[Rfam]
RNA sequence: UCAUGGCUAUCUGGUGGUGGGCUCGCAGCUAAGCGGCCUUGACCAGUCAUGUUCAAAGACAAGACAAAGCCGCCCGACCACCGAGGCGGCUUUCUU
Numbered sequence: 001u002c003a004u005g006g007c008u009a010u011c012u013g014g015u016g017g018u019g020g021g022c023u024c025g026c027a028g029c030u031a032a033g034c035g036g037c038c039u040u041g042a043c044c045a046g047u048c049a050u051g052u053u054c055a056a057a058g059a060c061a062a063g064a065c066a067a068a069g070c071c072g073c074c075c076g077a078c079c080a081c082c083g084a085g086g087c088g089g090c091u092u093u094c095u096u
Stems, first nucleotide, its partner, number of pairs: 011046005017040001019039004024035003050061004067092008075083002
RcsR1 sRNA: a 96-nucleotide RNA from Rhizobium sp. Root149. By type it is a small RNA. Rfam links the family to the GO terms negative regulation of translation in response to stress and sRNA-mediated gene silencing. For this family Rfam cites "The stress-related, rhizobial small RNA RcsR1 destabilizes the autoinducer synthase encoding mRNA sinI in Sinorhizobium meliloti" (Baumgardt et al., RNA Biol, 2015). NCBI's taxonomy places the organism under Bacteria, Pseudomonadota, Alphaproteobacteria, Hyphomicrobiales, Rhizobium.